Shown here is a 122-nucleotide sequence, a member of the family "Plastid-psbA-1 3UTR RNA". The family is grouped with related families in Rfam's "Plastid-psbA 3UTR RNA clan". The base pairs follow the family's consensus structure, which was predicted with LocARNA. Rfam classes the family as a cis-regulatory element. Rfam describes the family as follows. Plastid psbA-1 is a non-coding RNA (ncRNA) present in plastids.

RNA sequence: UCGAAGCUCCAUCUACAAAUGGAUAAAGUUUCAUUCUUAGUUUAGUGUAUACGAGUUAUAGUUAUUGAGAGUAAAGGGGCAGUACUGGUUUCUUGACAGAACAAGAAAUUGGUUAUUGCCCC
Numbered sequence: 001u002c003g004a005a006g007c008u009c010c011a012u013c014u015a016c017a018a019a020u021g022g023a024u025a026a027a028g029u030u031u032c033a034u035u036c037u038u039a040g041u042u043u044a045g046u047g048u049a050u051a052c053g054a055g056u057u058a059u060a061g062u063u064a065u066u067g068a069g070a071g072u073a074a075a076g077g078g079g080c081a082g083u084a085c086u087g088g089u090u091u092c093u094u095g096a097c098a099g100a101a102c103a104a105g106a107a108a109u110u111g112g113u114u115a116u117u118g119c120c121c122c
Base pairs, nucleotide, nucleotide: 008023009022010021011020012019076122077121078120079119080118081117082116083115084114087110088109090107091106092105093104094103